[Rfam]
RNA sequence: UCAGCCGGCUGGACGGCCGCUCCGGCAAGCACCGAAAGGUCGCCGGGGAGGAAAGUCCGGGCUCCAUGAAGACACGGUGCCGGGUAACGCCCGGCGGGGAAACCCUAGGGAAAGUGCCACAGAAAGCAAACCGCCCCGGAUGCAGGCCUCGAGCCUGUAGGCGGGGUAAGGGUGAAAGGGUGGGGUAAGAGCCCACCGCGUGCCCGGCAACGGGCAUGGCACGGUAAACCCCACCGGGAGCAAAACCGAAUAGGGGCGGCGCGGGGAAACCCGGUCCGUUUUCAGACCAGCCGCCCGGGUUGGUUGCGUGAGGCGUCCGGCAACGGGCGUCCCAGAUGAAUGGCCGUCAGGCGGGGCUUGCCCCGUUCUACAGAACCCGGCUUACAGGCCGGCUGGCAUU
Numbered sequence: 001u002c003a004g005c006c007g008g009c010u011g012g013a014c015g016g017c018c019g020c021u022c023c024g025g026c027a028a029g030c031a032c033c034g035a036a037a038g039g040u041c042g043c044c045g046g047g048g049a050g051g052a053a054a055g056u057c058c059g060g061g062c063u064c065c066a067u068g069a070a071g072a073c074a075c076g077g078u079g080c081c082g083g084g085u086a087a088c089g090c091c092c093g094g095c096g097g098g099g100a101a102a103c104c105c106u107a108g109g110g111a112a113a114g115u116g117c118c119a120c121a122g123a124a125a126g127c128a129a130a131c132c133g134c135c136c137c138g139g140a141u142g143c144a145g146g147c148c149u150c151g152a153g154c155c156u157g158u159a160g161g162c163g164g165g166g167u168a169a170g171g172g173u174g175a176a177a178g179g180g181u182g183g184g185g186u187a188a189g190a191g192c193c194c195a196c197c198g199c200g201u202g203c204c205c206g207g208c209a210a211c212g213g214g215c216a217u218g219g220c221a222c223g224g225u226a227a228a229c230c231c232c233a234c235c236g237g238g239a240g241c242a243a244a245a246c247c248g249a250a251u252a253g254g255g256g257c258g259g260c261g262c263g264g265g266g267a268a269a270c271c272c273g274g275u276c277c278g279u280u281u282u283c284a285g286a287c288c289a290g291c292c293g294c295c296c297g298g299g300u301u302g303g304u305u306g307c308g309u310g311a312g313g314c315g316u317c318c319g320g321c322a323a324c325g326g327g328c329g330u331c332c333c334a335g336a337u338g339a340a341u342g343g344c345c346g347u348c349a350g351g352c353g354g355g356g357c358u359u360g361c362c363c364c365g366u367u368c369u370a371c372a373g374a375a376c377c378c379g380g381c382u383u384a385c386a387g388g389c390c391g392g393c394u395g396g397c398a399u400u
Stems, first nucleotide, its partner, number of pairs: 001396010011385001012348007020048007028040001053383003057380005062240004070282003075236005080094005095108001096106004109231002114229002116225003131171002133167006141159007179197006198220001199218008244305004254296006273288004312331008